Annotation
A member of the RNA family "Small nucleolar RNA snoR27" from Dichanthelium oligosanthes, 87 nucleotides long. A search with the family's covariance model found it, with a score of 50 bits. On this family, see Brown et al., RNA 2001: "Multiple snoRNA gene clusters from Arabidopsis". The family's consensus secondary structure was predicted with WAR. Its family is annotated with nucleolus and RNA processing in the Gene Ontology. Its Rfam clan is "snR68 clan".
RNA sequence: CAGGAUAGAUGAUGCAACUGUUAAACUGCGUUAUCUUUCCUGAAUCUUUUAAGGUGCUGAAGAAAACGUUACCAGCUGAGAUCCAUG
Numbered sequence: 001c002a003g004g005a006u007a008g009a010u011g012a013u014g015c016a017a018c019u020g021u022u023a024a025a026c027u028g029c030g031u032u033a034u035c036u037u038u039c040c041u042g043a044a045u046c047u048u049u050u051a052a053g054g055u056g057c058u059g060a061a062g063a064a065a066a067c068g069u070u071a072c073c074a075g076c077u078g079a080g081a082u083c084c085a086u087g
Stems, first nucleotide, its partner, number of pairs: 001087002003084004